[Rfam]
RNA sequence: UUUAUGAUUAAAUGAGUUAUGGGUUGACCCAACUCAUUUUGUUAAAUGAGUUGGGUCUAACCCAUAACUCAUUUCAUUUGAUG
Numbered sequence: 001u002u003u004a005u006g007a008u009u010a011a012a013u014g015a016g017u018u019a020u021g022g023g024u025u026g027a028c029c030c031a032a033c034u035c036a037u038u039u040u041g042u043u044a045a046a047u048g049a050g051u052u053g054g055g056u057c058u059a060a061c062c063c064a065u066a067a068c069u070c071a072u073u074u075c076a077u078u079u080g081a082u083g
Base pairs, nucleotide, nucleotide: 010074011073012072013071014070015069016068017067018066019065020064021063022062023061024060025059026057027056028055029054030053031052032051033050034049035048036047037046038045039044
Dot-bracket structure: .........((((((((((((((((((((((((((((((....)))))))))))))).)))))))))))))))).........
Description
A member of the RNA family "MIR405 microRNA precursor family" from Arabidopsis thaliana, 83 nucleotides long. Gene Ontology terms of the family: RISC complex and miRNA-mediated post-transcriptional gene silencing. NCBI's taxonomy places the organism under Eukaryota, Viridiplantae, Tracheophyta, Spermatophyta, Arabidopsis.